[Rfam]
RNA sequence: UCAUGGUGGCGGCUGGGGACAGCCCCACGGUGGUGGUUGG
Numbered sequence: 001u002c003a004u005g006g007u008g009g010c011g012g013c014u015g016g017g018g019a020c021a022g023c024c025c026c027a028c029g030g031u032g033g034u035g036g037u038u039g040g
Stems, first nucleotide, its partner, number of pairs: 001030002004027003